[Rfam]
RNA: Acido-Lenti-1 RNA
RNA sequence: CGAUGGGCGUUGCCCAUCGCUAUUUGAUUGCGCCCCUUCGGGGCU
Dot-bracket structure: ((((((((...))))))))............(((((...))))).